Source information:
The record is a 52-nucleotide RNA sequence from Roseibium aggregatum, which matches "serC leader" in Rfam. Pairs were carried over by alignment from the consensus structure. For this family Rfam cites "Evidence for a second class of S-adenosylmethionine riboswitches and other regulatory RNA motifs in alpha-proteobacteria" (Corbino et al., Genome Biol, 2005).
Nucleotides: 052
Base pairs, nucleotide, nucleotide: 011028012027013026014025015024016023032047033046034045035044036043037042
Number, partner (000 for none) and nucleotide at each position: 001000a002000g003000g004000u005000g006000g007000g008000c009000c010000a011028c012027c013026u014025c015024u016023c017000c018000c019000c020000a021000a022000c023016g024015a025014g026013a027012g028011g029000c030000a031000a032047c033046u034045a035044u036043c037042u038000g039000c040000g041000a042037g043036g044035g045034u046033a047032g048000a049000c050000a051000g052000a

Lineage of the source: Bacteria > Alphaproteobacteria > Stappiaceae > Roseibium > Roseibium aggregatum. Rfam classes the family as a cis-regulatory leader.